RNA sequence: CGUAUUAUGCUGCUGCCAGCCCGCAUCCCGUCUGGUUUGAUGCGCGCGGCCUGUGUCUUAAACACGGCGCAAAACUCCUUACCGGAUUUU
Numbered sequence: 001c002g003u004a005u006u007a008u009g010c011u012g013c014u015g016c017c018a019g020c021c022c023g024c025a026u027c028c029c030g031u032c033u034g035g036u037u038u039g040a041u042g043c044g045c046g047c048g049g050c051c052u053g054u055g056u057c058u059u060a061a062a063c064a065c066g067g068c069g070c071a072a073a074a075c076u077c078c079u080u081a082c083c084g085g086a087u088u089u090u
Stems, first nucleotide, its partner, number of pairs: 015050003019047002022044006051067006
This 90-nucleotide sequence belongs to the Rfam family "Peptidase-S11 RNA". The sequence is in the family's curated seed alignment. Pairs were carried over by alignment from the consensus structure, which is taken from published work. The family's RNA type in Rfam is cis-regulatory element.